[Rfam]
The record is a 57-nucleotide sequence from Artemisia annua, which matches "Plastid-psbA-3 3UTR RNA" in Rfam. For this family Rfam cites "Retrograde signaling in plants: A critical review focusing on the GUN pathway and beyond" (Richter et al., Plant Commun, 2023).
RNA sequence: AAGGGAGCAAUAAUGUCCUUUUGAUAAAACAAGAGGAAAGCUAUUGCUCCUCUUUUA
Number, nucleotide and partner (000 for none) at each position: 001a053002a000003g051004g050005g049006a048007g047008c046009a045010a044011u043012a042013a000014u040015g000016u000017c000018c035019u034020u033021u032022u031023g030024a000025u000026a000027a000028a000029a000030c023031a022032a021033g020034a019035g018036g000037a000038a000039a000040g014041c000042u012043a011044u010045u009046g008047c007048u006049c005050c004051u003052c000053u001054u000055u000056u000057a000

Rfam classes the family as a cis-regulatory element. Rfam's curators write: Plastid psbA-3 is a non-coding RNA (ncRNA) present in plastids. It was identified in inverted repeat sequences in the 3 prime untranslate region (3UTR) of photosystem II quinone-binding protein (psbA).